[Rfam]
The family of this 118-nucleotide sequence from Corticibacter populi is "Glycine riboswitch aptamer". Rfam's curators write: This family represents the bacterial glycine riboswitch.
RNA sequence: CUGCCACCCACUGGAGAGAGAUGCGGCUCCGCCAUCCGGACGCCCAUCCACCGAAGGAGCAAGACGCCGGCAGCCCUGGCCGUUGAAUCUCUCAGGUAAAGCGGACAGCAGGGUCUCC
Numbered sequence: 001c002u003g004c005c006a007c008c009c010a011c012u013g014g015a016g017a018g019a020g021a022u023g024c025g026g027c028u029c030c031g032c033c034a035u036c037c038g039g040a041c042g043c044c045c046a047u048c049c050a051c052c053g054a055a056g057g058a059g060c061a062a063g064a065c066g067c068c069g070g071c072a073g074c075c076c077u078g079g080c081c082g083u084u085g086a087a088u089c090u091c092u093c094a095g096g097u098a099a100a101g102c103g104g105a106c107a108g109c110a111g112g113g114u115c116u117c118c
Base pairs, nucleotide, nucleotide: 007112008111011108012107013106020048021047022046023045050097051096052095053093054092057091058090059089063084064083065082066081